[Rfam]
RNA: mir-3017 microRNA precursor family
Organism: Acyrthosiphon pisum
RNA sequence: CCAUGUUCUGUGACUGACUGGGCUGGCGCCGGACUGGGGGGUGCCCGCCGGUCGGUCACAGAGCACGGGA
Numbered sequence: 001c002c003a004u005g006u007u008c009u010g011u012g013a014c015u016g017a018c019u020g021g022g023c024u025g026g027c028g029c030c031g032g033a034c035u036g037g038g039g040g041g042u043g044c045c046c047g048c049c050g051g052u053c054g055g056u057c058a059c060a061g062a063g064c065a066c067g068g069g070a
Stems, first nucleotide, its partner, number of pairs: 001068002004065011016053003021049002025045003